RNA sequence: GAUGGGCGUGGUGACGUGCUCCUGUAAUCUAGCUACUUGGUGGCCAGGGUGCGGGAUUUCGUGGGACCGGGAGUUCUGGCAUAUGGGUGCUCAUGUUGAUCGGGCGUCCACGUUAAGCACGGCGCCGAUAUGGAUGACCUAUCGGAGGGUGGGUUGUCCAGGUCGUCUAAGGAGGGGUGGACUGGCCCGGGGGGAAACCCAGAGGGCAAAAGUCCCUGUGUGGUGCGGUAGCGAGGUAGCGCCUGUGAAUUGUGUCCAUCUGACAGCCCAGCGUGAAGACCGCCUCCUUU
Dot-bracket structure: (.((((.(((......))).))).....((........)).).).((((.((((..(((((((...(.(((....(((.((.((((((..(.((.(....((((((((..(((((.((((.((((((((.(((((((((((((....))))))))))))).))))((...))((((((....(.(((...(((....)))....))).)..)))))))))).))))..))))).)...))))))).).)).).)))))).)).)))))).)))))))).)))).))))..

A member of the RNA family "Metazoan signal recognition particle RNA" from Schistosoma curassoni, 290 nucleotides long. The source organism's lineage runs through Eukaryota, Protostomia, Rhabditophora, Trematoda and Schistosoma. Pairs were carried over by alignment from the consensus structure, which is taken from published work. A search with the family's covariance model found it, with a score of 177 bits. Its Rfam clan is "SRP clan". On this family, see Wild et al., Curr Opin Struct Biol 2002: "Towards the structure of the mammalian signal recognition particle".